[Rfam]
RNA sequence: CGAGUCCACCGAUCCGGCACAACAUCCUGCAGCGGUGUUGUGUGGCCUGCAGUGCCCGUCGGUGGACUCG
Numbered sequence: 001c002g003a004g005u006c007c008a009c010c011g012a013u014c015c016g017g018c019a020c021a022a023c024a025u026c027c028u029g030c031a032g033c034g035g036u037g038u039u040g041u042g043u044g045g046c047c048u049g050c051a052g053u054g055c056c057c058g059u060c061g062g063u064g065g066a067c068u069c070g
Stems, first nucleotide, its partner, number of pairs: 001070007010061004021039006044056003

A member of the RNA family "bZIP non canonical Hac1/Xbp1 intron" from Aspergillus candidus, 70 nucleotides long. A reference for the family is Hooks and Griffiths-Jones (2011), "Conserved RNA structures in the non-canonical Hac1/Xbp1 intron", RNA Biol. From the family's description: bZIP intron RNA is a non-canonical intron that was first reported in HAC1 gene in yeast and XBP1 gene in Metazoa. Rfam classes the family as a small RNA. Taxonomically the source falls in Aspergillus subgen. Circumdati (Eukaryota, Fungi, Pezizomycotina, Aspergillaceae). Rfam 15.1 lists 1,325 matches to the family in 1,320 species.